A member of the RNA family "IS605-orfB-II RNA", 144 nucleotides long.
The family's consensus secondary structure is taken from published work.
The family's RNA type in Rfam is small RNA.
[Rfam]
RNA sequence: CAUGAUUAGUUAAUCUAGGAUUGUUUAGAGGGUAGUCGCAGUCGCCCCAACUCCAACUUAUAAAACAAUUUUUUAUUUUGUAAGUAGGGUGAGAAACAACAUUUUGUUGGAAACUCUAUUUUUUUUAAGAAAUUAGAGAACUGU
Numbered sequence: 001c002a003u004g005a006u007u008a009g010u011u012a013a014u015c016u017a018g019g020a021u022u023g024u025u026u027a028g029a030g031g032g033u034a035g036u037c038g039c040a041g042u043c044g045c046c047c048c049a050a051c052u053c054c055a056a057c058u059u060a061u062a063a064a065a066c067a068a069u070u071u072u073u074u075a076u077u078u079u080g081u082a083a084g085u086a087g088g089g090u091g092a093g094a095a096a097c098a099a100c101a102u103u104u105u106g107u108u109g110g111a112a113a114c115u116c117u118a119u120u121u122u123u124u125u126u127a128a129g130a131a132a133u134u135a136g137a138g139a140a141c142u143g144u
Stems, first nucleotide, its partner, number of pairs: 006018004030047004038144004051093003056085010067074002097109005114138005120132003

It is one of the family's seed sequences.